[Rfam]
Annotation: A member of the RNA family "U12 minor spliceosomal RNA" from Trichogramma brassicae, 151 nucleotides long. By type it is a spliceosomal small nuclear RNA. The family has 62 seed sequences and 2,106 matches in Rfam 15.1. Gene Ontology terms of the family: mRNA branch site recognition, U12 snRNP and pre-mRNA branch point binding. Lineage of the source: Eukaryota > Protostomia > Arthropoda > Endopterygota > Trichogramma.
RNA sequence: GUGCCUUAAACUAAUGAGUAAGGAAAAUAUGAGGCUUUGGUAACGCUUAGCAAUGUUUAAUUCAUAAGCGAACCUAUUUUUGAAGAGGAACAGGUCGUCCUGCGGCAGCCUGAACUACUUUUUCGGGUAGCCCAGUGAAGCGAUCUACCUC
Numbered sequence: 001g002u003g004c005c006u007u008a009a010a011c012u013a014a015u016g017a018g019u020a021a022g023g024a025a026a027a028u029a030u031g032a033g034g035c036u037u038u039g040g041u042a043a044c045g046c047u048u049a050g051c052a053a054u055g056u057u058u059a060a061u062u063c064a065u066a067a068g069c070g071a072a073c074c075u076a077u078u079u080u081u082g083a084a085g086a087g088g089a090a091c092a093g094g095u096c097g098u099c100c101u102g103c104g105g106c107a108g109c110c111u112g113a114a115c116u117a118c119u120u121u122u123u124c125g126g127g128u129a130g131c132c133c134a135g136u137g138a139a140g141c142g143a144u145c146u147a148c149c150u151c
Stems, first nucleotide, its partner, number of pairs: 004023005034051003039046001054070005085151004092146007101135001104132003108128001110126005